[Rfam]
RNA sequence: GUACGUUCAUCCUUCGGGACGCAGGCAUCUUACUCAUGGAACGGGGGGUAAGA
Numbered sequence: 001g002u003a004c005g006u007u008c009a010u011c012c013u014u015c016g017g018g019a020c021g022c023a024g025g026c027a028u029c030u031u032a033c034u035c036a037u038g039g040a041a042c043g044g045g046g047g048g049u050a051a052g053a
Stems, first nucleotide, its partner, number of pairs: 004043005010019003028053006034046002
RNA: Glutamine-II riboswitch aptamer